[Rfam]
RNA sequence: CGCUUGAAACCAGUCAUGUAGUUGGAAAAUCAGUGUUUGGUUGGGGGGAGUGGGGGAGGUGUGGACCGCAAGGCCGCUCUUUCUUACAUCUCUCUAGUCAGGCAUGCACUUUUCUUCCGCAGGUCAACAUCAGUUUCUUUUGCUGGACAAAACUCUUGAGAAGGUAGCAGCUUUGGCUGUGUUAUAGCUCUGGAGCGAUACAGUGGAGGGGACUGAGGUUUUCGCAGCAUGUGCUCUCGGGCAAGGCCUGCUGGGCGCUAUGGGAUCGUUCGGGGUACAAUACAUGUAUUUUGCCUCGUGUCUUUUCUAUACUCGUUUAGUUGUGCUCUUCCAUGCUUAGGAUGUUGACUUAAUGGUUUUAAUCGACCCGUCUUGAAACACGG
Number, nucleotide and partner (000 for none) at each position: 001c365002g364003c000004u362005u361006g360007a359008a358009a357010c356011c355012a354013g000014u000015c000016a000017u121018g120019u119020a000021g117022u000023u000024g114025g113026a112027a111028a110029a000030u000031c000032a000033g000034u000035g000036u000037u000038u000039g000040g000041u000042u000043g000044g000045g000046g000047g000048g000049a000050g000051u000052g000053g000054g000055g000056g000057a000058g000059g000060u000061g000062u000063g000064g000065a000066c000067c000068g000069c000070a000071a000072g000073g000074c000075c000076g000077c000078u000079c000080u000081u000082u000083c000084u000085u000086a000087c000088a000089u000090c000091u000092c000093u000094c000095u000096a000097g000098u000099c000100a000101g000102g000103c000104a000105u000106g000107c000108a000109c000110u028111u027112u026113u025114c024115u000116u000117c021118c000119g019120c018121a017122g000123g000124u000125c347126a346127a345128c344129a343130u342131c341132a000133g000134u000135u000136u000137c000138u000139u000140u000141u000142g000143c000144u000145g000146g000147a000148c000149a000150a000151a000152a000153c000154u000155c000156u000157u000158g000159a000160g000161a000162a000163g000164g000165u000166a000167g000168c000169a000170g000171c000172u000173u000174u000175g000176g000177c000178u000179g000180u000181g000182u000183u000184a000185u000186a000187g000188c000189u000190c000191u000192g000193g000194a000195g000196c000197g000198a000199u000200a000201c000202a000203g000204u000205g000206g000207a000208g000209g000210g000211g000212a000213c000214u000215g000216a000217g000218g000219u000220u000221u000222u000223c000224g000225c000226a000227g000228c000229a000230u000231g000232u000233g000234c000235u000236c000237u000238c000239g000240g000241g000242c000243a000244a000245g000246g000247c000248c000249u000250g000251c000252u000253g000254g000255g000256c000257g000258c000259u000260a000261u000262g000263g000264g000265a000266u000267c000268g000269u000270u000271c000272g000273g000274g000275g000276u000277a000278c000279a000280a000281u000282a000283c000284a000285u000286g000287u000288a000289u000290u000291u000292u000293g000294c000295c000296u000297c000298g000299u000300g000301u000302c000303u000304u000305u000306u000307c000308u000309a000310u000311a000312c000313u000314c000315g000316u000317u000318u000319a000320g000321u000322u000323g000324u000325g000326c000327u000328c000329u000330u000331c000332c000333a000334u000335g000336c000337u000338u000339a000340g000341g131342a130343u129344g128345u127346u126347g125348a000349c000350u000351u000352a000353a000354u012355g011356g010357u009358u008359u007360u006361a005362a004363u000364c002365g001366a000367c000368c383369c382370g381371u380372c000373u000374u000375g000376a000377a000378a000379c000380a371381c370382g369383g368

A member of the RNA family "Eukaryotic large subunit ribosomal RNA" from Entomortierella parvispora, 383 nucleotides of a longer RNA. A reference for the family is Yusupov et al. (2001), "Crystal structure of the ribosome at 5.5 A resolution", Science.